[Rfam]
A member of the RNA family "PAGEV RNA", 213 nucleotides long.
RNA sequence: UGGGGGUUGGAUCAAGAUGUUGUGGCCCCCGCCAGCGUUGAACUGGUGAUCACGGGGAUCUCCAUACACCAGUCGGUACAGCCGUUGUCUGCUUAAAGUAGGCCGCCAGAGGAAGCUCGCAUCGCUUCUGGUGCUCCGAAUUUCAUAUAGCAGCAGCGCCGCAUGCCGUGGAGGGGUGAGCUGUGUUGGCAGCUCAGAAGAUGCGGAACGCCG
Dot-bracket structure: (((((((.................)))))))..........((((((.............[[[[[..)))))).........(((((.(((((.......................................................))))))))))((((((...]]]]]....((((((........))))))....)))))).......
Numbered sequence: 001u002g003g004g005g006g007u008u009g010g011a012u013c014a015a016g017a018u019g020u021u022g023u024g025g026c027c028c029c030c031g032c033c034a035g036c037g038u039u040g041a042a043c044u045g046g047u048g049a050u051c052a053c054g055g056g057g058a059u060c061u062c063c064a065u066a067c068a069c070c071a072g073u074c075g076g077u078a079c080a081g082c083c084g085u086u087g088u089c090u091g092c093u094u095a096a097a098g099u100a101g102g103c104c105g106c107c108a109g110a111g112g113a114a115g116c117u118c119g120c121a122u123c124g125c126u127u128c129u130g131g132u133g134c135u136c137c138g139a140a141u142u143u144c145a146u147a148u149a150g151c152a153g154c155a156g157c158g159c160c161g162c163a164u165g166c167c168g169u170g171g172a173g174g175g176g177u178g179a180g181c182u183g184u185g186u187u188g189g190c191a192g193c194u195c196a197g198a199a200g201a202u203g204c205g206g207a208a209c210g211c212c213g
Stems, first nucleotide, its partner, number of pairs: 001031007042073006061172005083158005089153005159206006177196006

Description: By type it is a small RNA.